The record is a 109-nucleotide RNA from Sediminibacillus albus, which matches "SAM riboswitch aptamer (S box leader)" in Rfam.
The source organism's lineage runs through Bacteria, Bacillota, Bacilli, Bacillaceae and Sediminibacillus.
The match comes from Rfam's covariance-model search (96 bits).
RNA sequence: UUCUUAUAAAGAGCGGCGGAGGGAAAGGCCCGAUGAAGCCCGGCAACCCACUGAUUUAAUCAGGAAGGUGCCAAUUCCUGCAGAGUUGGAUGACUCUGAGAGAUAAGAA
Numbered sequence: 001u002u003c004u005u006a007u008a009a010a011g012a013g014c015g016g017c018g019g020a021g022g023g024a025a026a027g028g029c030c031c032g033a034u035g036a037a038g039c040c041c042g043g044c045a046a047c048c049c050a051c052u053g054a055u056u057u058a059a060u061c062a063g064g065a066a067g068g069u070g071c072c073a074a075u076u077c078c079u080g081c082a083g084a085g086u087u088g089g090a091u092g093a094c095u096c097u098g099a100g101a102g103a104u105a106a107g108a109a
Base pairs, nucleotide, nucleotide: 001109002108003107004106005105006104007103013041015040016039017038021031022030023029026079027078028077042072043071044070045069047068048067051063052062053061076101081098082097083096084095085094086093
Dot-bracket structure: (((((((.....(.(((...(((..[[[)))......))))((((.((..(((.......)))...))))))...(]]].((((((......))))))..).)))))))